[Rfam]
RNA sequence: AACUGCCAUAAUGGCCAUAGCAGAAGCCUUCACAUCACGGCCCCUGUCAGAGUCCAAUGAUUCUACUCAAUUCUGCU
Numbered sequence: 001a002a003c004u005g006c007c008a009u010a011a012u013g014g015c016c017a018u019a020g021c022a023g024a025a026g027c028c029u030u031c032a033c034a035u036c037a038c039g040g041c042c043c044c045u046g047u048c049a050g051a052g053u054c055c056a057a058u059g060a061u062u063c064u065a066c067u068c069a070a071u072u073c074u075g076c077u
Base pairs, nucleotide, nucleotide: 013042014041015040016039019077020076021075022074023073024072025071026038049064050063051062052061053060054059
Dot-bracket structure: ............[[[[..((((((((...........)]]]]......((((((....))))))......)))))))